[Rfam]
Small nucleolar RNA SNORD100: an 82-nucleotide RNA sequence from Hemibagrus wyckioides. The base pairs follow the family's consensus structure, which was predicted with RNAalifold. Rfam 15.1 lists 838 matches to the family in 626 species. Taxonomically the source falls in Hemibagrus (Eukaryota, Gnathostomata, Siluriformes, Bagridae). The family is grouped with related families in Rfam's "SNORD100 clan". A search with the family's covariance model found it, with a score of 84 bits. Rfam classes the family as a C/D-box small nucleolar RNA.
Nucleotides: 082
Base pairs, nucleotide, nucleotide: 001082002081003080004079005078006077
Number, partner (000 for none) and nucleotide at each position: 001082u002081g003080u004079g005078u006077c007000u008000g009000u010000g011000a012000u013000g014000a015000c016000a017000a018000c019000u020000u021000g022000g023000c024000u025000c026000c027000c028000u029000c030000u031000a032000c033000u034000g035000a036000a037000u038000u039000c040000a041000g042000u043000g044000a045000g046000g047000a048000a049000a050000u051000u052000g053000c054000c055000u056000u057000u058000g059000u060000u061000a062000c063000c064000c065000a066000a067000u068000u069000g070000u071000u072000c073000c074000u075000g076000a077006g078005a079004c080003a081002c082001a